[Rfam]
RNA sequence: GGAUGUGAGGGCAAUCUGGCAGUGAGAUCUGUCAGUAAUUGUAUGGGUUGAUUUGACUGGUCUGGCUAGCUUAUGCAGGUGUCCUCUUCCUUCCUCAGCGUUCCGUGUGUGUUCCUCCUGGAGCCUGGUUAAUGAGGACAGCCUCCCCAACAGACAUGGUAUUGUUCACUGGUCAAGGGUGUGUGGUAGCUGUGCUCCCCUGCUGGAAGCUCUAAGUAAGCUCAAAGUCCACUUAUAGAAGAAUGUAGGGUAGUCAAACAUCCAAUACGAAAGACACAUCCAAAUGAGAGGCUCCAUGCAGCAGUCUGCCAGUGGCUUU
Numbered sequence: 001g002g003a004u005g006u007g008a009g010g011g012c013a014a015u016c017u018g019g020c021a022g023u024g025a026g027a028u029c030u031g032u033c034a035g036u037a038a039u040u041g042u043a044u045g046g047g048u049u050g051a052u053u054u055g056a057c058u059g060g061u062c063u064g065g066c067u068a069g070c071u072u073a074u075g076c077a078g079g080u081g082u083c084c085u086c087u088u089c090c091u092u093c094c095u096c097a098g099c100g101u102u103c104c105g106u107g108u109g110u111g112u113u114c115c116u117c118c119u120g121g122a123g124c125c126u127g128g129u130u131a132a133u134g135a136g137g138a139c140a141g142c143c144u145c146c147c148c149a150a151c152a153g154a155c156a157u158g159g160u161a162u163u164g165u166u167c168a169c170u171g172g173u174c175a176a177g178g179g180u181g182u183g184u185g186g187u188a189g190c191u192g193u194g195c196u197c198c199c200c201u202g203c204u205g206g207a208a209g210c211u212c213u214a215a216g217u218a219a220g221c222u223c224a225a226a227g228u229c230c231a232c233u234u235a236u237a238g239a240a241g242a243a244u245g246u247a248g249g250g251u252a253g254u255c256a257a258a259c260a261u262c263c264a265a266u267a268c269g270a271a272a273g274a275c276a277c278a279u280c281c282a283a284a285u286g287a288g289a290g291g292c293u294c295c296a297u298g299c300a301g302c303a304g305u306c307u308g309c310c311a312g313u314g315g316c317u318u319u
Stems, first nucleotide, its partner, number of pairs: 001104003006097006014088001018086002024083002027080005032065003038061003041057002112159002116154002118128004129150002136146003189259001191257001195253002198250006210241002213238001216236005282319003288310001291305003295301001

Source information: Rfam assigns this 319-nucleotide RNA sequence from Falcunculus frontatus to the family "7SK RNA". Lineage of the source: Eukaryota > Saurischia > Theropoda > Pachycephalidae > Falcunculus. The family's RNA type in Rfam is non-coding RNA gene. Its Rfam clan is "7SK clan". 7SK was discovered as an abundant small nuclear RNA in the mid-70s but a possible function has only recently been suggested.